[Rfam]
RNA sequence: GUUUGGCUGAUGACGUAACAAUUUGUCGGAUACCCCUUCACUCUUCUUAUGAGUGAGAUCAGCAGUCUGACAAAC
Numbered sequence: 001g002u003u004u005g006g007c008u009g010a011u012g013a014c015g016u017a018a019c020a021a022u023u024u025g026u027c028g029g030a031u032a033c034c035c036c037u038u039c040a041c042u043c044u045u046c047u048u049a050u051g052a053g054u055g056a057g058a059u060c061a062g063c064a065g066u067c068u069g070a071c072a073a074a075c
Stems, first nucleotide, its partner, number of pairs: 001075005